[Rfam]
RNA sequence: CGGUUUGAAAUCUCCGCGGCCCACGCCUAUAUCCAUCCGUGCCGGCUUGCCGGCUAUGGUGAUAAAUGAUGUCGUGGAAUAGAUGCAGCGGACCCGGGGGCAGUACCCGGCGGCUCCACCACGAAGUCCGGGAAACCGGGGUUCAUGACGGGGCCGAACCAGGAUCGACGUGUGUUCAAAGGCGACGUUUUUGCCCGGCCUGAAUGAGCCGUAAAACCGUUCAAACUCACAAGUGCUAACGAUAACGAAGCACUCGCGAUCGCCGCGUAACCUAGUCCUCACGGACGACGUUACUAAGGCUUAGCGCGGUUCGGUCCGCACCGGGCAACAGAAGCGGAAUCC
Numbered sequence: 001c002g003g004u005u006u007g008a009a010a011u012c013u014c015c016g017c018g019g020c021c022c023a024c025g026c027c028u029a030u031a032u033c034c035a036u037c038c039g040u041g042c043c044g045g046c047u048u049g050c051c052g053g054c055u056a057u058g059g060u061g062a063u064a065a066a067u068g069a070u071g072u073c074g075u076g077g078a079a080u081a082g083a084u085g086c087a088g089c090g091g092a093c094c095c096g097g098g099g100g101c102a103g104u105a106c107c108c109g110g111c112g113g114c115u116c117c118a119c120c121a122c123g124a125a126g127u128c129c130g131g132g133a134a135a136c137c138g139g140g141g142u143u144c145a146u147g148a149c150g151g152g153g154c155c156g157a158a159c160c161a162g163g164a165u166c167g168a169c170g171u172g173u174g175u176u177c178a179a180a181g182g183c184g185a186c187g188u189u190u191u192u193g194c195c196c197g198g199c200c201u202g203a204a205u206g207a208g209c210c211g212u213a214a215a216a217c218c219g220u221u222c223a224a225a226c227u228c229a230c231a232a233g234u235g236c237u238a239a240c241g242a243u244a245a246c247g248a249a250g251c252a253c254u255c256g257c258g259a260u261c262g263c264c265g266c267g268u269a270a271c272c273u274a275g276u277c278c279u280c281a282c283g284g285a286c287g288a289c290g291u292u293a294c295u296a297a298g299g300c301u302u303a304g305c306g307c308g309g310u311u312c313g314g315u316c317c318g319c320a321c322c323g324g325g326c327a328a329c330a331g332a333a334g335c336g337g338a339a340u341c342c
Stems, first nucleotide, its partner, number of pairs: 041054005058195005069188007084174003088171003094110005111156007196211004201223003307323004313340001315338004
Rfam assigns this 342-nucleotide RNA sequence from Rhizorhabdus dicambivorans to the family "Alphaproteobacteria transfer-messenger RNA". The family is grouped with related families in Rfam's "tRNA clan". The organism belongs to Rhizorhabdus, within Bacteria. The base pairs follow the family's consensus structure, which is taken from published work. Rfam classes the family as a non-coding RNA gene. A search with the family's covariance model found it, with a score of 219 bits.